This 213-nucleotide RNA from Oharaeibacter diazotrophicus belongs to the Rfam family "permuted transfer-messenger RNA". Pairs were carried over by alignment from the consensus structure, which is taken from published work. From the family's description: Bacterial tmRNA, also known as 10Sa RNA or SsrA, is named for its dual tRNA and mRNA-like properties. Its role is to liberate the mRNA from a stalled ribosome. To accomplish this part of the tmRNA is used as a reading frame that ends in a translation stop signal. The broken mRNA is replaced in the ribosome by the tmRNA and translation of the tmRNA leads to addition of a proteolysis tag to the incomplete protein enabling recognition by a protease. Recently a number of permuted tmRNA genes have been found encoded in two parts. tmRNAs have been identified in eubacteria and some chloroplasts but are absent from archaeal and eukaryote nuclear genomes. Rfam classes the family as a non-coding RNA gene. NCBI's taxonomy places the organism under Bacteria, Pseudomonadati, Alphaproteobacteria, Hyphomicrobiales, Oharaeibacter.
[Rfam]
RNA sequence: GGCGAUAAACUGGCUGCGCAAUAAACCUAUCGGACCCGGGGGCGGUACCCGGCGCCUCCACCCGAGCCCGCGCGCGACGCGGGUUCCGGCGGGGGCGAAAUAGGAUCGACGAGGGCGUAAAGGCAGUGCGGUCGCUCGGCAUGGUUCCGCCGUCAUCGGGCCGAUCCUAUAGUUGCGAAUGACAACUAUGCUCCGGUGGCCGUCGCCGCGUAA
Numbered sequence: 001g002g003c004g005a006u007a008a009a010c011u012g013g014c015u016g017c018g019c020a021a022u023a024a025a026c027c028u029a030u031c032g033g034a035c036c037c038g039g040g041g042g043c044g045g046u047a048c049c050c051g052g053c054g055c056c057u058c059c060a061c062c063c064g065a066g067c068c069c070g071c072g073c074g075c076g077a078c079g080c081g082g083g084u085u086c087c088g089g090c091g092g093g094g095g096c097g098a099a100a101u102a103g104g105a106u107c108g109a110c111g112a113g114g115g116c117g118u119a120a121a122g123g124c125a126g127u128g129c130g131g132u133c134g135c136u137c138g139g140c141a142u143g144g145u146u147c148c149g150c151c152g153u154c155a156u157c158g159g160g161c162c163g164a165u166c167c168u169a170u171a172g173u174u175g176c177g178a179a180u181g182a183c184a185a186c187u188a189u190g191c192u193c194c195g196g197u198g199g200c201c202g203u204c205g206c207c208g209c210g211u212a213a
Stems, first nucleotide, its partner, number of pairs: 001136005014126004026115003030112003036052005053097007137152004